[Rfam]
RNA sequence: AGCACUUGUGUGUGUUUUUAACUUGUGAACAAAGACAGGUGCAAAAGUAAAUGCUCUUUUGCAACCCAGAACUCAUUGUACAGUAUGAGUUUUGUUACAUAUUAGAAGGAAUAUG
Numbered sequence: 001a002g003c004a005c006u007u008g009u010g011u012g013u014g015u016u017u018u019u020a021a022c023u024u025g026u027g028a029a030c031a032a033a034g035a036c037a038g039g040u041g042c043a044a045a046a047g048u049a050a051a052u053g054c055u056c057u058u059u060u061g062c063a064a065c066c067c068a069g070a071a072c073u074c075a076u077u078g079u080a081c082a083g084u085a086u087g088a089g090u091u092u093u094g095u096u097a098c099a100u101a102u103u104a105g106a107a108g109g110a111a112u113a114u115g
Base pairs, nucleotide, nucleotide: 002042003041004040005039006038007037008036009035011033017029022027051112052111054109055108057106058105059104061102067094068093069092070091071090072089073088074087075086076085